[Rfam]
RNA: Eukaryotic large subunit ribosomal RNA, nucleotides 1481 to 1622
Nucleotides: 142
Stems, first nucleotide, its partner, number of pairs: 001140002004137001008130006017106011028094001030062004037054007066091004071087002074085002108118002
Number, partner (000 for none) and nucleotide at each position: 001140c002139c003000c004137g005000a006000a007000a008130g009129a010128u011127g012126g013125u014000g015000a016000a017106c018105u019104a020103u021102g022101c023100u024099u025098g026097a027096g028094c029000a030062g031061a032060a033059u034000g035000a036000a037054g038053c039052c040051a041050g042049a043048g044000g045000a046000a047000a048043c049042u050041c051040u052039g053038g054037u055000g056000g057000a058000a059033g060032u061031u062030c063000g064000u065000a066091g067090c068089g069088g070000u071087g072086u073000u074085g075084a076000c077000g078000u079000g080000c081000a082000a083000a084075u085074c086072a087071c088069u089068c090067g091066u092000c093000u094028g095000a096027c097026u098025u099024g100023a101022g102021u103020g104019u105018a106017g107000g108118g109117g110000c111000g112000a113000a114000a115000g116000a117109c118108u119000a120000a121000u122000c123000g124000a125013a126012c127011c128010a129009u130008c131000u132000a133000g134000u135000u136000g137004c138000u139002g140001g141000u142000u